[Rfam]
The record is a 69-nucleotide sequence from Virgibacillus salinus, which matches "Bacillaceae-1 RNA" in Rfam. The organism belongs to Virgibacillus, within Bacteria. The family's RNA type in Rfam is small RNA.
RNA sequence: UUUUUCGGGUCACCGGCUAAAAACCGGCCACGUCCUGUGACCAACGCUGGUACUAGAACGUCCUGUUCG
Number, nucleotide and partner (000 for none) at each position: 001u000002u000003u000004u000005u000006c000007g000008g000009g000010u000011c000012a051013c050014c049015g048016g047017c046018u000019a000020a000021a000022a000023a000024c000025c000026g000027g041028c000029c039030a038031c037032g000033u000034c000035c000036u000037g031038u030039g029040a000041c027042c000043a000044a000045c000046g017047c016048u015049g014050g013051u012052a000053c000054u000055a000056g068057a067058a066059c065060g000061u000062c000063c000064u000065g059066u058067u057068c056069g000